The family of this 102-nucleotide sequence from Halalkalibacter akibai is "Purine riboswitch aptamer". The organism belongs to Halalkalibacter akibai, within Bacteria. Rfam 15.1 lists 4,097 matches to the family in 1,411 species. A search with the family's covariance model found it, with a score of 92 bits.

RNA sequence: AAUAAAACUUUAAUAAUAACUCGUAUAAUCACGGGGAUAUGGCCCGAAAGUUUCUACCAAGCUGCCGUAAAUGGCUUGACUACGAGUGAUAGUUGAUUAUUU
Numbered sequence: 001a002a003u004a005a006a007a008c009u010u011u012a013a014u015a016a017u018a019a020c021u022c023g024u025a026u027a028a029u030c031a032c033g034g035g036g037a038u039a040u041g042g043c044c045c046g047a048a049a050g051u052u053u054c055u056a057c058c059a060a061g062c063u064g065c066c067g068u069a070a071a072u073g074g075c076u077u078g079a080c081u082a083c084g085a086g087u088g089a090u091a092g093u094u095g096a097u098u099a100u101u102u
Stems, first nucleotide, its partner, number of pairs: 019087007029049001032046004058078007